About this RNA
The record is a 133-nucleotide sequence from Catenulispora acidiphila, which matches "SAM riboswitch aptamer (S box leader)" in Rfam. The source organism's lineage runs through Bacteria, Bacillati, Catenulisporaceae, Catenulispora and Catenulispora acidiphila. The SAM riboswitch is found upstream of a number of genes which code for proteins involved in methionine or cysteine biosynthesis in Gram-positive bacteria. Rfam links the family to the GO term regulation of gene expression. It is one of the family's seed sequences.
RNA sequence: CGCUCAUCCAGAGGAGCUGAGGGACCGGCCCUACGACGCUCCGGCAACCAUCCGUUCUGCCACCUCAUCGUGGCACGGCGCGGUGCCAACUCCGGCCCACCCGGCAGCCGCCGAGCCGUGGGAAAGAUGAGGA
Numbered sequence: 001c002g003c004u005c006a007u008c009c010a011g012a013g014g015a016g017c018u019g020a021g022g023g024a025c026c027g028g029c030c031c032u033a034c035g036a037c038g039c040u041c042c043g044g045c046a047a048c049c050a051u052c053c054g055u056u057c058u059g060c061c062a063c064c065u066c067a068u069c070g071u072g073g074c075a076c077g078g079c080g081c082g083g084u085g086c087c088a089a090c091u092c093c094g095g096c097c098c099a100c101c102c103g104g105c106a107g108c109c110g111c112c113g114a115g116c117c118g119u120g121g122g123a124a125a126g127a128u129g130a131g132g133a
Stems, first nucleotide, its partner, number of pairs: 003131006013042005021031003025095004043087004048083002051078002091125001096122005